Background
Rfam assigns this 76-nucleotide RNA sequence from Megalobrama amblycephala to the family "mir-10 microRNA precursor family". The base pairs follow the family's consensus structure, which was predicted with PFOLD. NCBI's taxonomy places the organism under Eukaryota, Bilateria, Neopterygii, Teleostei, Megalobrama.
Nucleotides: 076
Stems, first nucleotide, its partner, number of pairs: 002074006010066003016061004021056010
Number, partner (000 for none) and nucleotide at each position: 001000c002074u003073a004072u005071a006070u007069a008000u009000a010066c011065c012064c013000u014000g015000u016061a017060g018059a019058u020000c021056c022055g023054g024053a025052u026051u027050u028049g029048u030047g031000u032000a033000a034000a035000c036000a037000g038000a039000c040000g041000c042000a043000c044000a045000g046000u047030c048029a049028c050027a051026a052025a053024u054023u055022c056021g057000u058019a059018u060017c061016u062000a063000g064012g065011g066010g067000a068000g069007u070006a071005u072004g073003u074002a075000g076000u